[Rfam]
RNA sequence: UCGACUGUACUCUACAGGAUCAUGUUCGUAGUUAAUAUGUUCUGAUCUCUCAGUACUUUAGAUGGAAAGCCAGCUGGUUGAUGACACGUUGUACGCCAUCCGUAAAGGGAGGCUGUGGUCGCUACGCCAUUUAGGUGUGGUCGACCCUCGAUGAUCUUGCGUUGCUAGUACUUGCCAUCUGCGCCCUUGGGCGGGGUGGUUGACAUCUAGCUUUCUUGCAAGGAUGGUCGUACCGUCUGACAGCCU
Dot-bracket structure: .((..(..(((....((.(...).))...))).)...)).......((.(((.(......).)))..))...((((..............(((((((((((...((((......(.(...(...................)...).).......))))...((((.(................................................).)))))))))).))))).......))))..
Rfam assigns this 246-nucleotide RNA sequence from Tieghemiomyces parasiticus to the family "ACEA small nucleolar RNA U3".
Taxonomically the source falls in Tieghemiomyces (Eukaryota, Opisthokonta, Fungi, Dimargaritaceae).
From the family's description: Small nucleolar RNAs (snoRNAs) are involved in the processing and modification of rRNA in the nucleolus.
It scores 57 bits against the family's covariance model.
Its Rfam clan is "U3 clan".
The family's consensus secondary structure is taken from published work.
The literature on the family includes a 1997 paper in Nucleic Acids Res by Zwieb, "The uRNA database".
It is annotated as a C/D-box small nucleolar RNA.